[Rfam]
RNA sequence: CCCUGAGUAUCAGCUCAGGGCAUCUGUUUCGAAUUUGUAACCAGGGGGUCUGCUCGUG
Numbered sequence: 001c002c003c004u005g006a007g008u009a010u011c012a013g014c015u016c017a018g019g020g021c022a023u024c025u026g027u028u029u030c031g032a033a034u035u036u037g038u039a040a041c042c043a044g045g046g047g048g049u050c051u052g053c054u055c056g057u058g
Base pairs, nucleotide, nucleotide: 001020002019003018004017005016006015007014008013
RNA: ClpQY promoter